[Rfam]
RNA: mir-2060 microRNA precursor family
RNA sequence: CGAUUAUUGUAUGCUGGUGGCGUUCAGCACCAAGGGCAGGGGCGUUUUCCUGCGUAUGGUUUGUGUUCAGCACCAAGGACAGGAAUGUUUUCCU
Numbered sequence: 001c002g003a004u005u006a007u008u009g010u011a012u013g014c015u016g017g018u019g020g021c022g023u024u025c026a027g028c029a030c031c032a033a034g035g036g037c038a039g040g041g042g043c044g045u046u047u048u049c050c051u052g053c054g055u056a057u058g059g060u061u062u063g064u065g066u067u068c069a070g071c072a073c074c075a076a077g078g079a080c081a082g083g084a085a086u087g088u089u090u091u092c093c094u
Stems, first nucleotide, its partner, number of pairs: 004085002007082004018075003022071003026067005032061001034055001036053007